[Rfam]
RNA: Acido-Lenti-1 RNA
Organism: Pirellulimonas nuda
RNA sequence: CCAGGGGCUUGCGCCCCUGGCUAUGCGCCGCCGCCCCUCCGGGGCU
Numbered sequence: 001c002c003a004g005g006g007g008c009u010u011g012c013g014c015c016c017c018u019g020g021c022u023a024u025g026c027g028c029c030g031c032c033g034c035c036c037c038u039c040c041g042g043g044g045c046u
Stems, first nucleotide, its partner, number of pairs: 001020008033045005